A member of the RNA family "Glutamine riboswitch aptamer (glnA leader)", 57 nucleotides long.

RNA sequence: AUCGUUCAUCCACUAGGGACGGAAGUAAGCGUAUAAUAAAUGCUGAAGGAACGCAUU
Numbered sequence: 001a002u003c004g005u006u007c008a009u010c011c012a013c014u015a016g017g018g019a020c021g022g023a024a025g026u027a028a029g030c031g032u033a034u035a036a037u038a039a040a041u042g043c044u045g046a047a048g049g050a051a052c053g054c055a056u057u
Base pairs, nucleotide, nucleotide: 003053004052005051006050007049009019010018011017022054028044029043030042031041032040

The sequence is in the family's curated seed alignment.